[Rfam]
RNA sequence: AGAGUUAGCUAGACAGUCGCUGUAAUAAUUAUCAUUACAGAGGAAAGUCCGGGCUCCAUUGGGCAAAGUGCCAGGUAAUGCCUGGGAAGCGCGAGCUUACGGAAAGUGCCACAGAAAAUAGACCGCCUAAGAUUUAUAAUGAUGGGUCUCAGGUAAGGGUGAAAAGGUGUGGUAAAAGCACACCGCAUCACUGGUAACAGUGGUGGCAAGGUAAACCCCACUUGGAGCAAGACCAAAUAGGAACCUUUUAGACGCGGUCCACGUUAGGUUCGGGUAGGUCGCUUGAGAUAUACGGUGACGUAUGUCCUAGAUGAAUGACUGUCCACGACAGAACCCGGCUUAUCGGCUAACUCUUCUU
Dot-bracket structure: ((((((((((((((((((.(((((((.(...).)))))))....[[[.[[[[[((((...[[[[.((((((((((.....)))))(((((....)))).)((...(((((............((((((.((((((((....)))))))).))))..)).......((((((.......))))))(((((((((....)))))))).)..)))..)))))))))))))...((((......((((((....((((..]]]].)))))))))).....))))......((((((((....))))))))..........)))))))..........]]]]]]]].).))))))))))....
Rfam assigns this 358-nucleotide RNA sequence from Rickettsiella grylli to the family "Bacterial RNase P class A". Rfam describes the family as follows. Ribonuclease P (RNase P) is a ubiquitous endoribonuclease, found in archaea, bacteria and eukarya as well as chloroplasts and mitochondria.